[Rfam]
RNA sequence: CGAUGGGGUAGAGGUGCAGUAUUUAAGAGUAGGCUGUGUGAGAAUGACAACGAAGACCACAGCUGAAAGGGAAGACUGCCGAAGCCAUUAGAGCCUGUCCAGGCCUGCAUGGCUGGGGUUACUUUGAAUAAGAGUAACACUGUCAUUAUGAAGGAAACCUUUAUAAUGAGGAGCUACAGAUCGU
Numbered sequence: 001c002g003a004u005g006g007g008g009u010a011g012a013g014g015u016g017c018a019g020u021a022u023u024u025a026a027g028a029g030u031a032g033g034c035u036g037u038g039u040g041a042g043a044a045u046g047a048c049a050a051c052g053a054a055g056a057c058c059a060c061a062g063c064u065g066a067a068a069g070g071g072a073a074g075a076c077u078g079c080c081g082a083a084g085c086c087a088u089u090a091g092a093g094c095c096u097g098u099c100c101a102g103g104c105c106u107g108c109a110u111g112g113c114u115g116g117g118g119u120u121a122c123u124u125u126g127a128a129u130a131a132g133a134g135u136a137a138c139a140c141u142g143u144c145a146u147u148a149u150g151a152a153g154g155a156a157a158c159c160u161u162u163a164u165a166a167u168g169a170g171g172a173g174c175u176a177c178a179g180a181u182c183g184u
Stems, first nucleotide, its partner, number of pairs: 008177004016079005022073003032064007083114006091106001093104002115141002118138008143169009
A member of the RNA family "Lysine riboswitch aptamer" from Mesobacillus foraminis, 184 nucleotides long. Taxonomically the source falls in Mesobacillus (Bacteria, Bacillati, Bacillota, Caryophanales).